[Rfam]
RNA sequence: GAGAACAAGAAGAAGCUCCCGCUUCUCGCCUAAGUUAAGUUAACCUCUAGGCUGAUCGAUAAUUUCUGUUGAUUAAGGGCGGGCGUUAACUUAUUGACCCGCUCUUUUCUUGUCCU
Numbered sequence: 001g002a003g004a005a006c007a008a009g010a011a012g013a014a015g016c017u018c019c020c021g022c023u024u025c026u027c028g029c030c031u032a033a034g035u036u037a038a039g040u041u042a043a044c045c046u047c048u049a050g051g052c053u054g055a056u057c058g059a060u061a062a063u064u065u066c067u068g069u070u071g072a073u074u075a076a077g078g079g080c081g082g083g084c085g086u087u088a089a090c091u092u093a094u095u096g097a098c099c100c101g102c103u104c105u106u107u108u109c110u111u112g113u114c115c116u
Base pairs, nucleotide, nucleotide: 011026012025013024014023015022016021028052029051030050033046034045035043036042078103079102080101081100082099083098086097087096088095089094
A member of the RNA family "Ribosomal protein L20 leader" from Lactobacillus sp. LL6, 116 nucleotides long. The source organism's lineage runs through Bacteria, Bacillota, Bacilli, Lactobacillaceae and Lactobacillus. This family is a putative r-protein leader autoregulatory structure found in B. subtilis and other low-GC Gram-positive bacteria. It is located in the 5' untranslated regions of mRNAs encoding initiation factor 3 followed by ribosomal proteins L35 and L20 (infC-rpmI-rplT). The family's RNA type in Rfam is cis-regulatory leader. The family's consensus secondary structure was predicted with CMfinder.